[Rfam]
RNA sequence: GGCGGGUUGGAGAUGACCAGGUCGACCUGGCCGUCGAGCUCGGGCAGGGCCGCGAGCGCGUCGCCGUGGUGCAGCUGGACGCGGGAGCCCUCGAUGUUCUU
Numbered sequence: 001g002g003c004g005g006g007u008u009g010g011a012g013a014u015g016a017c018c019a020g021g022u023c024g025a026c027c028u029g030g031c032c033g034u035c036g037a038g039c040u041c042g043g044g045c046a047g048g049g050c051c052g053c054g055a056g057c058g059c060g061u062c063g064c065c066g067u068g069g070u071g072c073a074g075c076u077g078g079a080c081g082c083g084g085g086a087g088c089c090c091u092c093g094a095u096g097u098u099c100u101u
Stems, first nucleotide, its partner, number of pairs: 006039003010035002014033002018029004043057001082093004